Small nucleolar RNA snoR99: a 101-nucleotide RNA from Hibiscus trionum. A reference for the family is Marker et al. (2002), "Experimental RNomics: identification of 140 candidates for small non-messenger RNAs in the plant Arabidopsis thaliana", Curr Biol.
RNA sequence: GUGCUUUAGGGAUGAAGAAGUCCCUCAUACAAAAUAUCCAUCUAAAUCACUUUGUCAGUGGCCUUUUUAGUGGCUUAUUGAUCAUUUUGGAUGGAAAAUGC
Numbered sequence: 001g002u003g004c005u006u007u008a009g010g011g012a013u014g015a016a017g018a019a020g021u022c023c024c025u026c027a028u029a030c031a032a033a034a035u036a037u038c039c040a041u042c043u044a045a046a047u048c049a050c051u052u053u054g055u056c057a058g059u060g061g062c063c064u065u066u067u068u069a070g071u072g073g074c075u076u077a078u079u080g081a082u083c084a085u086u087u088u089g090g091a092u093g094g095a096a097a098a099u100g101c
Base pairs, nucleotide, nucleotide: 037095038094039093040092041091042090054082055081056080057079058078059077060076061075